[Rfam]
RNA sequence: AAAUUGAGUAGAAGCGUUCAGCAUUUUUAUAAUUAUCCAAUCGAAAAUGCAGGUCAUUGCUCAAAGA
Number, nucleotide and partner (000 for none) at each position: 001a000002a000003a000004u000005u063006g062007a061008g060009u059010a058011g000012a000013a000014g000015c052016g000017u000018u000019c053020a000021g050022c049023a048024u047025u046026u045027u044028u000029a000030u000031a000032a000033u000034u000035a000036u000037c000038c000039a000040a000041u000042c000043g000044a027045a026046a025047a024048u023049g022050c021051a000052g015053g019054u000055c000056a000057u000058u010059g009060c008061u007062c006063a005064a000065a000066g000067a000
A member of the RNA family "Xanthine riboswitch aptamer (NMT1 RNA)" from Acinetobacter populi, 67 nucleotides long.
The family's consensus secondary structure is taken from published work.
Lineage of the source: Bacteria > Pseudomonadati > Pseudomonadota > Moraxellaceae > Acinetobacter.
The match comes from Rfam's covariance-model search (55 bits).